[Rfam]
RNA sequence: GGGGCUGACUGGCUUUGACAGCGAGAUGAAGUGGUUUGUAAGCAUGCAGUGCGUAGUCGGCUGGCACUAUAAUCUCAGACGUCACAAAUUUAACUGGCAAUAACAAUUACGCUCUUGCUGCUUAAUCGAAGUAUAGUAGAUUCUAGCUUAAUCCUUGCACAGGUGUAAGGACAAGACAUCACCCGGAAGCUGUGGCUUCGAAGCGUGCCGAUCAGGUGGUGCAGACAAAUCGGAGAUAGGAUAGGGGAGGCUUUGGCCCUUAUCUGAAAUAAAAAAGCUAAGGUUUGAGUUGGUGGCUUCGGUCUUGCUCAUUCACGAAAACUUAAGCGAAGAUAAGCAUGUAGAAAGCAAAUUAGUUCCUUGUUUGGACGAGGGUUCAAGUCCCUCCAGCUCCACUA
Numbered sequence: 001g002g003g004g005c006u007g008a009c010u011g012g013c014u015u016u017g018a019c020a021g022c023g024a025g026a027u028g029a030a031g032u033g034g035u036u037u038g039u040a041a042g043c044a045u046g047c048a049g050u051g052c053g054u055a056g057u058c059g060g061c062u063g064g065c066a067c068u069a070u071a072a073u074c075u076c077a078g079a080c081g082u083c084a085c086a087a088a089u090u091u092a093a094c095u096g097g098c099a100a101u102a103a104c105a106a107u108u109a110c111g112c113u114c115u116u117g118c119u120g121c122u123u124a125a126u127c128g129a130a131g132u133a134u135a136g137u138a139g140a141u142u143c144u145a146g147c148u149u150a151a152u153c154c155u156u157g158c159a160c161a162g163g164u165g166u167a168a169g170g171a172c173a174a175g176a177c178a179u180c181a182c183c184c185g186g187a188a189g190c191u192g193u194g195g196c197u198u199c200g201a202a203g204c205g206u207g208c209c210g211a212u213c214a215g216g217u218g219g220u221g222c223a224g225a226c227a228a229a230u231c232g233g234a235g236a237u238a239g240g241a242u243a244g245g246g247g248a249g250g251c252u253u254u255g256g257c258c259c260u261u262a263u264c265u266g267a268a269a270u271a272a273a274a275a276a277g278c279u280a281a282g283g284u285u286u287g288a289g290u291u292g293g294u295g296g297c298u299u300c301g302g303u304c305u306u307g308c309u310c311a312u313u314c315a316c317g318a319a320a321a322c323u324u325a326a327g328c329g330a331a332g333a334u335a336a337g338c339a340u341g342u343a344g345a346a347a348g349c350a351a352a353u354u355a356g357u358u359c360c361u362u363g364u365u366u367g368g369a370c371g372a373g374g375g376u377u378c379a380a381g382u383c384c385c386u387c388c389a390g391c392u393c394c395a396c397u398a
Base pairs, nucleotide, nucleotide: 001394002393003392004391005390006389007388019367020366021364022363023362024361025360030357032355033354034353035352036351037350038349039348043341044340045339046338047337048068049067050066051065052064056083058081059080061078116133117132118131119130121128177221178220179219180218181217182216184210185209186208189204190203191202196235197234198233199232200231239265240264241263242262243261244260245259246258247257249279250278251277252276253275254274283314286311287310288309289308290307292303297332298331371387372386373385374384375383
The record is a 398-nucleotide RNA from Dysgonomonas mossii, which matches "transfer-messenger RNA" in Rfam. Rfam classes the family as a non-coding RNA gene. For this family Rfam cites "BRUCE: a program for the detection of transfer-messenger RNA genes in nucleotide sequences" (Laslett et al., Nucleic Acids Res, 2002).